[Rfam]
RNA sequence: UAAAAGGGUCGGUUGGCUAAGUAUGCCUCACUCGCCCGCGUUUGGUGAGUGCCGUAUGGCAAUCAAGACAUAUGGCCGACAUAAUUUGUGGAACCUCAUAGGGUUGGCUCGCUUGGCCGACCCUCCAU
Numbered sequence: 001u002a003a004a005a006g007g008g009u010c011g012g013u014u015g016g017c018u019a020a021g022u023a024u025g026c027c028u029c030a031c032u033c034g035c036c037c038g039c040g041u042u043u044g045g046u047g048a049g050u051g052c053c054g055u056a057u058g059g060c061a062a063u064c065a066a067g068a069c070a071u072a073u074g075g076c077c078g079a080c081a082u083a084a085u086u087u088g089u090g091g092a093a094c095c096u097c098a099u100a101g102g103g104u105u106g107g108c109u110c111g112c113u114u115g116g117c118c119g120a121c122c123c124u125c126c127a128u
Base pairs, nucleotide, nucleotide: 008080009079010078011077012076015027016026017025029051030050031049032048033047034046035045036044052075053074054073055072056071057070058069100124101123102122103121104120105119106118107117108116109115
Rfam assigns this 128-nucleotide sequence from Citrus sinensis to the family "U11 spliceosomal RNA". Taxonomically the source falls in Citrus (Eukaryota, Embryophyta, Tracheophyta, Sapindales). It is annotated as a spliceosomal small nuclear RNA.